[Rfam]
RNA sequence: AAGUAUACUGAGUGGCCAGAUUAUUAUGUUUUCUGAAAGCAUAAUAAUCUGGCCAAUCAGUGUAUAU
Number, nucleotide and partner (000 for none) at each position: 001a000002a000003g000004u064005a063006u062007a061008c060009u059010g058011a057012g000013u055014g054015g053016c052017c051018a000019g049020a048021u047022u046023a045024u044025u043026a042027u041028g040029u000030u000031u000032u000033c000034u000035g000036a000037a000038a000039g000040c028041a027042u026043a025044a024045u023046a022047a021048u020049c019050u000051g017052g016053c015054c014055a013056a000057u011058c010059a009060g008061u007062g006063u005064a004065u000066a000067u000
Rfam assigns this 67-nucleotide sequence from Pipistrellus kuhlii to the family "mir-9256 microRNA precursor family". Taxonomically the source falls in Pipistrellus (Eukaryota, Gnathostomata, Sarcopterygii, Vespertilionidae). Rfam links the family to the GO terms RISC complex and miRNA-mediated post-transcriptional gene silencing. The match comes from Rfam's covariance-model search (81 bits).